[Rfam]
RNA: Small nucleolar RNA SNORA4
RNA sequence: UAAUUAAAAUCACUCAUCAUGAGGGCAAGGUUUUUAAACUGAUCUUUAUCAAUUCGGGCUAUUUAGGAGAAUAAAGAAAAGACCACACUCUACAAUGGGCUAUACCACUUAGUAUAGAUCACUACUGCUUUAUGACUUAUGUU
Number, nucleotide and partner (000 for none) at each position: 001u000002a000003a000004u066005u065006a064007a063008a062009a000010u000011c000012a000013c000014u000015c058016a000017u056018c000019a000020u000021g054022a053023g000024g000025g050026c000027a000028a047029g044030g043031u042032u041033u000034u000035u000036a000037a000038a000039c000040u000041g032042a031043u030044c029045u000046u000047u028048a000049u000050c025051a000052a000053u022054u021055c000056g017057g000058g015059c000060u000061a000062u008063u007064u006065a005066g004067g000068a000069g000070a000071a000072u000073a000074a000075a000076g000077a000078a000079a000080a138081g137082a000083c000084c134085a133086c000087a131088c000089u000090c000091u000092a000093c000094a123095a000096u121097g120098g119099g000100c117101u116102a115103u114104a113105c112106c000107a000108c000109u000110u000111a000112g105113u104114a103115u102116a101117g100118a000119u098120c097121a096122c000123u094124a000125c000126u000127g000128c000129u000130u000131u087132a000133u085134g084135a000136c000137u081138u080139a000140u000141g000142u000143u000